[Rfam]
Nucleotides: 071
Base pairs, nucleotide, nucleotide: 001070002069003068004067005066006065007064010024011023012022013021026042028040029039030038047063048062049061050060051059
Number, partner (000 for none) and nucleotide at each position: 001070g002069c003068g004067g005066c006065u007064g008000u009000a010024g011023u012022u013021c014000a015000a016000u017000g018000g019000u020000a021013g022012a023011a024010c025000g026042c027000u028040a029039g030038c031000u032000u033000c034000c035000c036000a037000a038030g039029c040028u041000c042026g043000a044000u045000a046000c047063g048062c049061g050060g051059g052000u053000u054000c055000g056000a057000u058000u059051c060050c061049c062048g063047u064007c065006a066005g067004c068003c069002g070001c071000u
Background:
Shown here is a 71-nucleotide sequence from Methylophilaceae bacterium 11, a member of the family "tRNA". The family's consensus secondary structure is taken from published work.